Rfam assigns this 134-nucleotide sequence from Dioscorea zingiberensis to the family "Small nucleolar RNA snoR111". Rfam links the family to the GO terms RNA processing and nucleolus. A search with the family's covariance model found it, with a score of 76 bits. Rfam classes the family as an H/ACA-box small nucleolar RNA.

[Rfam]
RNA sequence: CUGAUGUGGUGAUCGCCUCGCCUAAGUAUGGUAUGGCGGAUCUCCAUGAAUGGAAUGGAGGAAGAGGAAUUUGUCGAGAUAUCGUUUCGGUCGCCAUUGGAUCCAUGGGCGAUUCGAUUGUUGCUCGCCGACAU
Number, nucleotide and partner (000 for none) at each position: 001c000002u000003g000004a000005u000006g047007u046008g045009g044010u000011g042012a000013u039014c038015g037016c036017c035018u000019c000020g000021c000022c000023u000024a000025a000026g000027u000028a000029u000030g000031g000032u000033a000034u000035g017036g016037c015038g014039g013040a000041u000042c011043u000044c009045c008046a007047u006048g000049a000050a000051u000052g000053g000054a000055a000056u000057g000058g000059a000060g000061g000062a000063a000064g000065a000066g000067g000068a000069a000070u000071u000072u130073g129074u000075c127076g126077a125078g124079a000080u000081a118082u117083c116084g115085u000086u000087u000088c000089g000090g113091u112092c111093g110094c109095c108096a000097u000098u105099g104100g000101a000102u000103c000104c099105a098106u000107g000108g095109g094110c093111g092112a091113u090114u000115c084116g083117a082118u081119u000120g000121u000122u000123g000124c078125u077126c076127g075128c000129c073130g072131a000132c000133a000134u000
For this family Rfam cites "Experimental RNomics: identification of 140 candidates for small non-messenger RNAs in the plant Arabidopsis thaliana" (Marker et al., Curr Biol, 2002).